[Rfam]
The record is an 83-nucleotide RNA sequence from Plasmodium yoelii, which matches "small nucleolar RNA snoR29" in Rfam.
It is one of the family's seed sequences.
The literature on the family includes a 2007 paper in RNA by Chakrabarti et al., "Structural RNAs of known and unknown function identified in malaria parasites by comparative genomics and RNA analysis".
The pairing is the family consensus, mapped onto this sequence.
Rfam classes the family as a C/D-box small nucleolar RNA.
RNA sequence: AAAAAAUGAUGAAACCAUUUAUGAUUAUCAAAGCCUUUCGGGUCUGAGAGUAAACUAUGAUGAUUAUAAGUAAAGCUGAUUUU
Numbered sequence: 001a002a003a004a005a006a007u008g009a010u011g012a013a014a015c016c017a018u019u020u021a022u023g024a025u026u027a028u029c030a031a032a033g034c035c036u037u038u039c040g041g042g043u044c045u046g047a048g049a050g051u052a053a054a055c056u057a058u059g060a061u062g063a064u065u066a067u068a069a070g071u072a073a074a075g076c077u078g079a080u081u082u083u
Base pairs, nucleotide, nucleotide: 003083004082005081006080